[Rfam]
RNA sequence: GCGCCCCCGGCGAUAAGGUUGCCAAGUGAGGUGGUCUUCCUCUCUGAGGAUAGCCGGGGGUGUUUUA
Number, nucleotide and partner (000 for none) at each position: 001g063002c062003g061004c060005c059006c058007c057008c056009g055010g054011c053012g000013a000014u000015a000016a000017g036018g035019u034020u033021g032022c031023c030024a000025a000026g000027u000028g000029a000030g023031g022032u021033g020034g019035u018036c017037u000038u050039c049040c048041u047042c000043u000044c000045u000046g000047a041048g040049g039050a038051u000052a000053g011054c010055c009056g008057g007058g006059g005060g004061u003062g002063u001064u000065u000066u000067a000

Rfam assigns this 67-nucleotide RNA sequence to the family "DUF3800-IX RNA". It is annotated as a small RNA. The base pairs follow the family's consensus structure, which is taken from published work. Rfam describes the family as follows. Actinobacteria, Firmicutes (1 example), Nitrospirae, Proteobacteria, Verrucomicrobia (1 example).